[Rfam]
RNA sequence: CCUGUUCCAUGGCAUCCACGUCGUGAGGCGUGCGCGCAAAGCAAGGGGUCUCGCGCUCGCCACGAGACAGCCCAGCCGCCGGG
Numbered sequence: 001c002c003u004g005u006u007c008c009a010u011g012g013c014a015u016c017c018a019c020g021u022c023g024u025g026a027g028g029c030g031u032g033c034g035c036g037c038a039a040a041g042c043a044a045g046g047g048g049u050c051u052c053g054c055g056c057u058c059g060c061c062a063c064g065a066g067a068c069a070g071c072c073c074a075g076c077c078g079c080c081g082g083g
Base pairs, nucleotide, nucleotide: 012037013036017032018031019030020029021028022027041076042075045073046072047071048068049067050066051062053060054059
RNA: c-di-GMP-I riboswitch aptamer
Organism: Aeromicrobium sp.